[Rfam]
RNA sequence: AAGGAGCAACAACCUCUCUUAAUAAACCAAGAGAGGUUAUUGCUCCUUUAUUUUCU
Numbered sequence: 001a002a003g004g005a006g007c008a009a010c011a012a013c014c015u016c017u018c019u020u021a022a023u024a025a026a027c028c029a030a031g032a033g034a035g036g037u038u039a040u041u042g043c044u045c046c047u048u049u050a051u052u053u054u055c056u
Base pairs, nucleotide, nucleotide: 001048002047003046004045005044006043007042008041009040011038012037013036014035015034016033017032018031019030020029
Overview
The record is a 56-nucleotide sequence from Mazus pumilus, which matches "Plastid-psbA-2 3UTR RNA" in Rfam. The base pairs follow the family's consensus structure, which was predicted with LocARNA. Rfam classes the family as a cis-regulatory element. The family is grouped with related families in Rfam's "Plastid-psbA 3UTR RNA clan". It is one of the family's seed sequences. The source organism's lineage runs through Eukaryota, Spermatophyta, Mesangiospermae, Lamiales and Mazus. Rfam describes the family as follows. Plastid psbA-2 is a non-coding RNA (ncRNA) present in plastids. The literature on the family includes a 2023 paper in Plant Commun by Richter et al., "Retrograde signaling in plants: A critical review focusing on the GUN pathway and beyond".